[Rfam]
RNA sequence: AUCGGUUUGGAAGACAGACCUUAUGAAAGCAGUUUUAGUAAAGCAGUCCUCAGUUCAAGAGUUAUCCAAAGAUACCCUUCUUCGUGAGCCUCCUCCUAAGUGCCAAAUAAGAUACUCUCUAAUUACAGGCCAUUAUCGCCGCGCUAAGUGGCUCAUCUAUUAAGGAAUUAUCUAUGUCUAAUAAAAUGACUGGUUUAGUAAAAUGGUUCAACUCUGAUAAAGGUUUUGGCUUUAUCACUCCGGACGACGGCAGCAAAGAUGUAUUCGUACACUUCUCUGCAAUCCAGAGCGACAACUACAAAACCCUGGAUGAAGGUCAGAAAGUUUCCUUCACCAUCGAAAACGGCGCUAAAGGCCCUGCAGCUGGCAACGUUACUGCCCUGUAAGCCGCGCUGAUUAUCAGCAAGCCUUACAACCGCGAUGACGGCGAUAGCCU
Numbered sequence: 001a002u003c004g005g006u007u008u009g010g011a012a013g014a015c016a017g018a019c020c021u022u023a024u025g026a027a028a029g030c031a032g033u034u035u036u037a038g039u040a041a042a043g044c045a046g047u048c049c050u051c052a053g054u055u056c057a058a059g060a061g062u063u064a065u066c067c068a069a070a071g072a073u074a075c076c077c078u079u080c081u082u083c084g085u086g087a088g089c090c091u092c093c094u095c096c097u098a099a100g101u102g103c104c105a106a107a108u109a110a111g112a113u114a115c116u117c118u119c120u121a122a123u124u125a126c127a128g129g130c131c132a133u134u135a136u137c138g139c140c141g142c143g144c145u146a147a148g149u150g151g152c153u154c155a156u157c158u159a160u161u162a163a164g165g166a167a168u169u170a171u172c173u174a175u176g177u178c179u180a181a182u183a184a185a186a187u188g189a190c191u192g193g194u195u196u197a198g199u200a201a202a203a204u205g206g207u208u209c210a211a212c213u214c215u216g217a218u219a220a221a222g223g224u225u226u227u228g229g230c231u232u233u234a235u236c237a238c239u240c241c242g243g244a245c246g247a248c249g250g251c252a253g254c255a256a257a258g259a260u261g262u263a264u265u266c267g268u269a270c271a272c273u274u275c276u277c278u279g280c281a282a283u284c285c286a287g288a289g290c291g292a293c294a295a296c297u298a299c300a301a302a303a304c305c306c307u308g309g310a311u312g313a314a315g316g317u318c319a320g321a322a323a324g325u326u327u328c329c330u331u332c333a334c335c336a337u338c339g340a341a342a343a344c345g346g347c348g349c350u351a352a353a354g355g356c357c358c359u360g361c362a363g364c365u366g367g368c369a370a371c372g373u374u375a376c377u378g379c380c381c382u383g384u385a386a387g388c389c390g391c392g393c394u395g396a397u398u399a400u401c402a403g404c405a406a407g408c409c410u411u412a413c414a415a416c417c418g419c420g421a422u423g424a425c426g427g428c429g430a431u432a433g434c435c436u
Stems, first nucleotide, its partner, number of pairs: 004020006029241001031239003042233002045231004049223002054221002061218004071209002074207003080176001082174001084172001093165001094163001100126003138152005178193003182189001245339003249335002258266002269327001271325004276321004280316001283310005291304001345358002348356003360384004365378003387409001389407001392404005426435003
The family of this 436-nucleotide RNA sequence from Kosakonia cowanii is "cspA thermoregulator". For this family Rfam cites "The cspA mRNA is a thermosensor that modulates translation of the cold-shock protein CspA" (Giuliodori et al., Mol Cell, 2010). Rfam classes the family as an RNA thermoregulator. Its family is annotated with regulation of translation and response to temperature stimulus in the Gene Ontology.